[Rfam]
RNA sequence: CUCGCACCCAAACCCAAGAAUCGCUGCUGCUCGUAGCAGCGGUUUAAACAGAGGUGCGGACAGCAAGUGGAUCUCGUCGCCUUUGGGGAGCUGUGGCUGUGCCCCUCAGAGUGAAUUUGGAGGUUCUACAUUC
Numbered sequence: 001c002u003c004g005c006a007c008c009c010a011a012a013c014c015c016a017a018g019a020a021u022c023g024c025u026g027c028u029g030c031u032c033g034u035a036g037c038a039g040c041g042g043u044u045u046a047a048a049c050a051g052a053g054g055u056g057c058g059g060a061c062a063g064c065a066a067g068u069g070g071a072u073c074u075c076g077u078c079g080c081c082u083u084u085g086g087g088g089a090g091c092u093g094u095g096g097c098u099g100u101g102c103c104c105c106u107c108a109g110a111g112u113g114a115a116u117u118u119g120g121a122g123g124u125u126c127u128a129c130a131u132u133c
Stems, first nucleotide, its partner, number of pairs: 002059007019044010069126007081111008090102002
Small nucleolar RNA SNORA68: a 133-nucleotide RNA from Microcebus murinus. About the family: U68 is a member of the H/ACA class of small nucleolar RNAs (snoRNAs) which act as guides in the the modification of uridines to pseudouridines. Rfam 15.1 lists 1,079 matches to the family in 643 species. The base pairs follow the family's consensus structure, which was predicted with PFOLD. The family's RNA type in Rfam is H/ACA-box small nucleolar RNA. A search with the family's covariance model found it, with a score of 146 bits. NCBI's taxonomy places the organism under Eukaryota, Gnathostomata, Sarcopterygii, Lemuriformes, Microcebus.